[Rfam]
RNA sequence: UGUUGGUCUGAGGGUGUUGGGUUAUUGUUAAGCUGAGUAACAUUGUCUCUUCCCACAACCAUGCUUGACUAGUUUUUU
Numbered sequence: 001u002g003u004u005g006g007u008c009u010g011a012g013g014g015u016g017u018u019g020g021g022u023u024a025u026u027g028u029u030a031a032g033c034u035g036a037g038u039a040a041c042a043u044u045g046u047c048u049c050u051u052c053c054c055a056c057a058a059c060c061a062u063g064c065u066u067g068a069c070u071a072g073u074u075u076u077u078u
Stems, first nucleotide, its partner, number of pairs: 002073007010066002014062002018055004026042003030038001

The family of this 78-nucleotide RNA from Rhinopithecus roxellana is "Y RNA". The family's RNA type in Rfam is non-coding RNA gene. The family's consensus secondary structure is taken from published work.